RNA sequence: GGUUGGGCGUAUUGCUUUCAAGAUGUGGCCUUUUUGGGUGAGGGGGC
Numbered sequence: 001g002g003u004u005g006g007g008c009g010u011a012u013u014g015c016u017u018u019c020a021a022g023a024u025g026u027g028g029c030c031u032u033u034u035u036g037g038g039u040g041a042g043g044g045g046g047c
Base pairs, nucleotide, nucleotide: 003021004020005019006016007015008014028047029046030045031044032043033042034041